This 317-nucleotide RNA from Centropus unirufus belongs to the Rfam family "7SK RNA". Rfam classes the family as a non-coding RNA gene. Rfam's curators write: 7SK was discovered as an abundant small nuclear RNA in the mid-70s but a possible function has only recently been suggested. NCBI's taxonomy places the organism under Eukaryota, Euteleostomi, Dipnotetrapodomorpha, Sauropsida, Centropus.
RNA sequence: CAAUGCGAGUGUGAUCUGGCUGUGACAUCUGUCACCCCAUUGAUCGCCAGGGUUGAUUAGGCUGAUCUGGCUGGCUAGGUGGGUGUCCCCUUGUCCCCUUCCUCCCUCAUCACUCCAUGUGCGCCCCUCCUGAAGCUGCACGCUUGGUUGAAGAGGACGACCUUGCCCGACAGAGAUGAAUCGUUCAUUGGUCCAAGGGUAUAUGGUAGUUGCGUUCCCCUGCUAGAAUAUCCAAACAAUGUAAGGUGGGUUAAUGGCUGGACUUGAUCUUAAGUGUCUUUUUCAACUUAAACGAUUCUAUGUCUCUAGAAGUCCCU
Numbered sequence: 001c002a003a004u005g006c007g008a009g010u011g012u013g014a015u016c017u018g019g020c021u022g023u024g025a026c027a028u029c030u031g032u033c034a035c036c037c038c039a040u041u042g043a044u045c046g047c048c049a050g051g052g053u054u055g056a057u058u059a060g061g062c063u064g065a066u067c068u069g070g071c072u073g074g075c076u077a078g079g080u081g082g083g084u085g086u087c088c089c090c091u092u093g094u095c096c097c098c099u100u101c102c103u104c105c106c107u108c109a110u111c112a113c114u115c116c117a118u119g120u121g122c123g124c125c126c127c128u129c130c131u132g133a134a135g136c137u138g139c140a141c142g143c144u145u146g147g148u149u150g151a152a153g154a155g156g157a158c159g160a161c162c163u164u165g166c167c168c169g170a171c172a173g174a175g176a177u178g179a180a181u182c183g184u185u186c187a188u189u190g191g192u193c194c195a196a197g198g199g200u201a202u203a204u205g206g207u208a209g210u211u212g213c214g215u216u217c218c219c220c221u222g223c224u225a226g227a228a229u230a231u232c233c234a235a236a237c238a239a240u241g242u243a244a245g246g247u248g249g250g251u252u253a254a255u256g257g258c259u260g261g262a263c264u265u266g267a268u269c270u271u272a273a274g275u276g277u278c279u280u281u282u283u284c285a286a287c288u289u290a291a292a293c294g295a296u297u298c299u300a301u302g303u304c305u306c307u308a309g310a311a312g313u314c315c316c317u
Stems, first nucleotide, its partner, number of pairs: 003114001005110001007108003011104001013101002018090002024087010035074002037070003042067004046062003125178001127175003130147004135143002148170003155166001157164001209269001211267001216262001218261002223256001230252001232250002236247002292317001294315001296311004300305001
Dot-bracket structure: ..(.(.(((.(.((...((....((((((((((.(((((..(((((((...........))).)))))))..))...)))))))))).)).........))..).))).)...)..........(.(((((((.((.....))))))(((....(.(......).).)))..)))..)..............................(.(....(.((...(......(.((..((........)).)).)...)...)))....).)......................(.(.(((((....)..))))...).)